[Rfam]
RNA sequence: GUAAACUUGUCGGAGUGCCCUUAGGAGCUGAGACCGUUAAUUCGGGAUCCGCGGAACCUGAUCAGGUUAGUACCUGCGAAGGGAACAAAAGUAGAUGUUAU
Numbered sequence: 001g002u003a004a005a006c007u008u009g010u011c012g013g014a015g016u017g018c019c020c021u022u023a024g025g026a027g028c029u030g031a032g033a034c035c036g037u038u039a040a041u042u043c044g045g046g047a048u049c050c051g052c053g054g055a056a057c058c059u060g061a062u063c064a065g066g067u068u069a070g071u072a073c074c075u076g077c078g079a080a081g082g083g084a085a086c087a088a089a090a091g092u093a094g095a096u097g098u099u100a101u
Stems, first nucleotide, its partner, number of pairs: 007088004011051004016045001017028002020025001035044002057082003063076004

Notes
A member of the RNA family "TPP riboswitch aptamer (THI element)" from a Plautia stali symbiont, 101 nucleotides long. Vitamin B(1) in its active form thiamin pyrophosphate (TPP) is an essential coenzyme that is synthesised by coupling of pyrimidine and thiazole moieties in bacteria.